[Rfam]
RNA sequence: GAAGUUGGUCAGACAAUCGCUCUUUGCCUUGGCAAAGGGAGGAAAGUCCGGGCUCCACAGGGCAGAGUGCCAGGUAAUUCCUGGGAGGCGUGAGCCUACGGAAAGUGCCACAGAAAAUAUACCGCCUUUUGAGUCAUCUCAGAGGGUAAGGGUGAAAUGGUGCGGUAAGAGCGCACCGCGCGUCCGGUAACGGACGUGGCAGGGAAAACCCCGCUCGGAGCAAGACCAAAUAGGAAUCCAUGCCGGUUGUGAAGCCGGUACGUAUGGCCCAUACGGGAUUCGGGUAGGUCGCUUGAGGUACGCGGUGACGCGUGUCCCAGAUGAAUGAUUGUCCGCGACAGAACCCGGCUUAUCGACCGACUUCGUUG
Numbered sequence: 001g002a003a004g005u006u007g008g009u010c011a012g013a014c015a016a017u018c019g020c021u022c023u024u025u026g027c028c029u030u031g032g033c034a035a036a037g038g039g040a041g042g043a044a045a046g047u048c049c050g051g052g053c054u055c056c057a058c059a060g061g062g063c064a065g066a067g068u069g070c071c072a073g074g075u076a077a078u079u080c081c082u083g084g085g086a087g088g089c090g091u092g093a094g095c096c097u098a099c100g101g102a103a104a105g106u107g108c109c110a111c112a113g114a115a116a117a118u119a120u121a122c123c124g125c126c127u128u129u130u131g132a133g134u135c136a137u138c139u140c141a142g143a144g145g146g147u148a149a150g151g152g153u154g155a156a157a158u159g160g161u162g163c164g165g166u167a168a169g170a171g172c173g174c175a176c177c178g179c180g181c182g183u184c185c186g187g188u189a190a191c192g193g194a195c196g197u198g199g200c201a202g203g204g205a206a207a208a209c210c211c212c213g214c215u216c217g218g219a220g221c222a223a224g225a226c227c228a229a230a231u232a233g234g235a236a237u238c239c240a241u242g243c244c245g246g247u248u249g250u251g252a253a254g255c256c257g258g259u260a261c262g263u264a265u266g267g268c269c270c271a272u273a274c275g276g277g278a279u280u281c282g283g284g285u286a287g288g289u290c291g292c293u294u295g296a297g298g299u300a301c302g303c304g305g306u307g308a309c310g311c312g313u314g315u316c317c318c319a320g321a322u323g324a325a326u327g328a329u330u331g332u333c334c335g336c337g338a339c340a341g342a343a344c345c346c347g348g349c350u351u352a353u354c355g356a357c358c359g360a361c362u363u364c365g366u367u368g
Base pairs, nucleotide, nucleotide: 001364002363003362004361005360006359007358008357009356010355011353012333013332014331015330016329017328018327020039021038022037023036024035025034026033027032044351045350046349048348049347050346051345052344053220054219055218056217060270061269062268063267065216066215067214068213069212070084071083072082073081074080085099086097087096088095089094100211101210105209106208108204109203122151123150124147125146126145127144128143129142130141131140132139159177160176161175162174163173164172178200179198180197181196182195183194184193185192186191224290225289226288227287234281235280236279237278238277239276261275262274263273264272265271297316298315299314300313301312302311303310304309
Bacterial RNase P class A: a 368-nucleotide RNA from Legionella spiritensis. It is annotated as a ribozyme. The base pairs follow the family's consensus structure, which is taken from published work. NCBI's taxonomy places the organism under Bacteria, Gammaproteobacteria, Legionellales, Legionellaceae, Legionella. It scores 345 bits against the family's covariance model. Gene Ontology terms of the family: tRNA processing, dimeric ribonuclease P complex and ribonuclease P activity.